[Rfam]
A member of the RNA family "Bradyrhizobiaceae sRNA BjrC174" from Alsobacter metallidurans, 167 nucleotides long. A search with the family's covariance model found it, with a score of 56 bits. The family's RNA type in Rfam is small RNA. On this family, see Madhugiri et al., RNA Biol 2012: "Small RNAs of the Bradyrhizobium/Rhodopseudomonas lineage and their analysis". NCBI's taxonomy places the organism under Bacteria, Pseudomonadati, Alphaproteobacteria, Hyphomicrobiales, Alsobacter.
RNA sequence: UUGAUGCGAACAUUCGCCGGCCCCGAACUGCGUAGAUAACCUUAUGCGUUGCCUCGGGCCCGAGCCUGGUUCGUCCGGAUCGAUCAGCCCCCCAGCCCCCCGGCGUUCGGGGCUCGGGCCCACCAUUUCAGUUCCCUGUCCUAGGGCCGCCGCAAGGCGGCCCUUCU
Numbered sequence: 001u002u003g004a005u006g007c008g009a010a011c012a013u014u015c016g017c018c019g020g021c022c023c024c025g026a027a028c029u030g031c032g033u034a035g036a037u038a039a040c041c042u043u044a045u046g047c048g049u050u051g052c053c054u055c056g057g058g059c060c061c062g063a064g065c066c067u068g069g070u071u072c073g074u075c076c077g078g079a080u081c082g083a084u085c086a087g088c089c090c091c092c093c094a095g096c097c098c099c100c101c102g103g104c105g106u107u108c109g110g111g112g113c114u115c116g117g118g119c120c121c122a123c124c125a126u127u128u129c130a131g132u133u134c135c136c137u138g139u140c141c142u143a144g145g146g147c148c149g150c151c152g153c154a155a156g157g158c159g160g161c162c163c164u165u166c167u
Stems, first nucleotide, its partner, number of pairs: 019129002022035001024032002057120011072105002075103004087096002144163008